[Rfam]
RNA: raiA RNA
RNA sequence: UUCUUUUAGGUCUGUAGUUGCGGACAUGCAGCGCUUUCGAGUGCAGCAUUCCAAGUCCAUGGCAGAUGCGGUCGAAAGGAUCCACGUAAGUUCGGUGAUCGCUCGCGCGUUAUUCCUGCUAGCCUUGCGCUUUUGUAGGUUUGGCGAAGAGCUCAUCACUGAAUGAGCACGGCGCAUUCUAGGUGUAAGUCGUACCGUCGGUGAAGCGGCAUAGGGCUGCUCUGGCGAGCGGAUGGCGUCGCUGCAAUACUCGUGCGCGCACGGUCUACAGCGGCUAAGUCCCCGUAUGCAGGUGUGGGGUCGAAAACUAGGUCAGCUAAAAGAA
Numbered sequence: 001u002u003c004u005u006u007u008a009g010g011u012c013u014g015u016a017g018u019u020g021c022g023g024a025c026a027u028g029c030a031g032c033g034c035u036u037u038c039g040a041g042u043g044c045a046g047c048a049u050u051c052c053a054a055g056u057c058c059a060u061g062g063c064a065g066a067u068g069c070g071g072u073c074g075a076a077a078g079g080a081u082c083c084a085c086g087u088a089a090g091u092u093c094g095g096u097g098a099u100c101g102c103u104c105g106c107g108c109g110u111u112a113u114u115c116c117u118g119c120u121a122g123c124c125u126u127g128c129g130c131u132u133u134u135g136u137a138g139g140u141u142u143g144g145c146g147a148a149g150a151g152c153u154c155a156u157c158a159c160u161g162a163a164u165g166a167g168c169a170c171g172g173c174g175c176a177u178u179c180u181a182g183g184u185g186u187a188a189g190u191c192g193u194a195c196c197g198u199c200g201g202u203g204a205a206g207c208g209g210c211a212u213a214g215g216g217c218u219g220c221u222c223u224g225g226c227g228a229g230c231g232g233a234u235g236g237c238g239u240c241g242c243u244g245c246a247a248u249a250c251u252c253g254u255g256c257g258c259g260c261a262c263g264g265u266c267u268a269c270a271g272c273g274g275c276u277a278a279g280u281c282c283c284c285g286u287a288u289g290c291a292g293g294u295g296u297g298g299g300g301u302c303g304a305a306a307a308c309u310a311g312g313u314c315a316g317c318u319a320a321a322a323g324a325a
Stems, first nucleotide, its partner, number of pairs: 001325009012316003015310005059296003062072001065178006081172002089164001091162002094159001170303001191289005196227005231282004238275007